[Rfam]
RNA sequence: GUAAUAUAAGAUACGGUCUCUUAGCUUUUAACUAAAAAAGCUAAGAUGCGUCUCUUAAAUAUUAUUUAAGAGACGCAUCUUAGCUUUUUUAGUUAAAAGCUAAGAGACCGUAUCUUAUAUUAC
Numbered sequence: 001g002u003a004a005u006a007u008a009a010g011a012u013a014c015g016g017u018c019u020c021u022u023a024g025c026u027u028u029u030a031a032c033u034a035a036a037a038a039a040g041c042u043a044a045g046a047u048g049c050g051u052c053u054c055u056u057a058a059a060u061a062u063u064a065u066u067u068a069a070g071a072g073a074c075g076c077a078u079c080u081u082a083g084c085u086u087u088u089u090u091a092g093u094u095a096a097a098a099g100c101u102a103a104g105a106g107a108c109c110g111u112a113u114c115u116u117a118u119a120u121u122a123c
Stems, first nucleotide, its partner, number of pairs: 001123039041083007
RNA: MIR9563 microRNA precursor family